This 70-nucleotide RNA sequence from Echeneis naucrates belongs to the Rfam family "miR-430 microRNA precursor family". The match comes from Rfam's covariance-model search (58 bits). The family is grouped with related families in Rfam's "mir-290 clan". Taxonomically the source falls in Echeneis (Eukaryota, Osteoglossocephalai, Percomorphaceae, Echeneidae).
RNA sequence: AAUGUUACCUUAACUUGAGCACUAACUUGACUGUUGAAUUCAGUAAGUGCUACUUGUUGGGGCAGCACUA
Number, nucleotide and partner (000 for none) at each position: 001a000002a000003u000004g066005u065006u064007a000008c062009c061010u060011u059012a000013a057014c056015u000016u000017g053018a051019g050020c049021a048022c047023u046024a000025a044026c043027u042028u000029g000030a000031c000032u000033g000034u000035u000036g000037a000038a000039u000040u000041c000042a027043g026044u025045a000046a023047g022048u021049g020050c019051u018052a000053c017054u000055u000056g014057u013058u000059g011060g010061g009062g008063c000064a006065g005066c004067a000068c000069u000070a000